[Rfam]
RNA: c-di-AMP riboswitch aptamer (ydaO/yuaA leader)
RNA sequence: AGCGCGAAAACGCACCACGGCAGGAGCGGGGGACCCACAGGUAAGUCGCCCCGGACCAUUCCUCGGAACGGUCCAGGGCUAGGGGUGAAGCCGCGCCCACGCGCGGCCGGGCAACUCCGGCCCGAAUCCGACAGCUCACCUCGCAGGCGUGGGAGAGGACCG
Number, nucleotide and partner (000 for none) at each position: 001a000002g000003c149004g148005c147006g000007a000008a000009a000010a000011c024012g000013c000014a000015c000016c000017a000018c000019g000020g000021c000022a000023g000024g011025a000026g144027c143028g142029g141030g140031g139032g000033a000034c000035c000036c082037a000038c000039a000040g000041g000042u000043a000044a000045g000046u000047c000048g000049c000050c000051c000052c000053g000054g000055a000056c000057c000058a000059u000060u000061c000062c000063u000064c000065g000066g000067a000068a000069c000070g000071g000072u000073c000074c000075a000076g000077g000078g000079c000080u000081a000082g036083g129084g128085g127086u000087g000088a000089a000090g000091c106092c105093g104094c103095g000096c000097c000098c000099a000100c000101g000102c000103g094104c093105g092106g091107c000108c000109g123110g122111g121112c120113a000114a000115c000116u000117c000118c000119g000120g112121c111122c110123c109124g000125a000126a000127u085128c084129c083130g000131a000132c000133a000134g000135c000136u000137c000138a000139c031140c030141u029142c028143g027144c026145a000146g000147g005148c004149g003150u000151g000152g000153g000154a000155g000156a000157g000158g000159a000160c000161c000162g000